The record is an 84-nucleotide RNA sequence from Ceratitis capitata, which matches "mir-252 microRNA precursor family" in Rfam. A reference for the family is Li et al. (2009), "Direct sequencing and expression analysis of a large number of miRNAs in Aedes aegypti and a multi-species survey of novel mosquito miRNAs", BMC Genomics. Lineage of the source: Eukaryota > Pterygota > Diptera > Schizophora > Ceratitis.
[Rfam]
RNA sequence: UCUCUUUGAUAAGCACUGGGGCAGCAGGGGUCUACUUUCUGACGUUUCAACUAUCUCCUGCGGCACUAGUACUUAGAAAAGUGA
Numbered sequence: 001u002c003u004c005u006u007u008g009a010u011a012a013g014c015a016c017u018g019g020g021g022c023a024g025c026a027g028g029g030g031u032c033u034a035c036u037u038u039c040u041g042a043c044g045u046u047u048c049a050a051c052u053a054u055c056u057c058c059u060g061c062g063g064c065a066c067u068a069g070u071a072c073u074u075a076g077a078a079a080a081g082u083g084a
Stems, first nucleotide, its partner, number of pairs: 001084002004081004010075004015070005024061007